The family of this 98-nucleotide RNA sequence from Wenzhouxiangella sp. XN24 is "Glycine riboswitch aptamer". About the family: This family represents the bacterial glycine riboswitch. NCBI's taxonomy places the organism under Bacteria, Pseudomonadati, Pseudomonadota, Chromatiales, Wenzhouxiangella.
RNA sequence: UAAAUCCCCGGUGGAGAGACUCCGGACCGCAAGGCCCGGGGCGCCGAAGGCGCAAGCACCGCCCGGAAACGCUCAGGCAAAAGGACGUCGGGGAUGAG
Numbered sequence: 001u002a003a004a005u006c007c008c009c010g011g012u013g014g015a016g017a018g019a020c021u022c023c024g025g026a027c028c029g030c031a032a033g034g035c036c037c038g039g040g041g042c043g044c045c046g047a048a049g050g051c052g053c054a055a056g057c058a059c060c061g062c063c064c065g066g067a068a069a070c071g072c073u074c075a076g077g078c079a080a081a082a083g084g085a086c087g088u089c090g091g092g093g094a095u096g097a098g
Stems, first nucleotide, its partner, number of pairs: 006093008020041006043078003046074002050072003057065001